Description
A member of the RNA family "TPP riboswitch aptamer (THI element)" from Rhodococcus coprophilus, 113 nucleotides long. About the family: Vitamin B(1) in its active form thiamin pyrophosphate (TPP) is an essential coenzyme that is synthesised by coupling of pyrimidine and thiazole moieties in bacteria.

RNA sequence: GAGAUACGACACGGGAGUCCCGAGGUACACGGGGCUGAGAGGGGGCCUGCCGGCCCCGACCGUUAUGACCUGAACCGGAUCAUGCCGGCGCAGGGAGUGAGGUGGACCGAUGA
Numbered sequence: 001g002a003g004a005u006a007c008g009a010c011a012c013g014g015g016a017g018u019c020c021c022g023a024g025g026u027a028c029a030c031g032g033g034g035c036u037g038a039g040a041g042g043g044g045g046c047c048u049g050c051c052g053g054c055c056c057c058g059a060c061c062g063u064u065a066u067g068a069c070c071u072g073a074a075c076c077g078g079a080u081c082a083u084g085c086c087g088g089c090g091c092a093g094g095g096a097g098u099g100a101g102g103u104g105g106a107c108c109g110a111u112g113a
Stems, first nucleotide, its partner, number of pairs: 009098002011063004017035005042057005069094004075088004
The match comes from Rfam's covariance-model search (61 bits). Taxonomically the source falls in Rhodococcus (Bacteria, Bacillati, Actinomycetes, Nocardiaceae). The family's consensus secondary structure is taken from published work.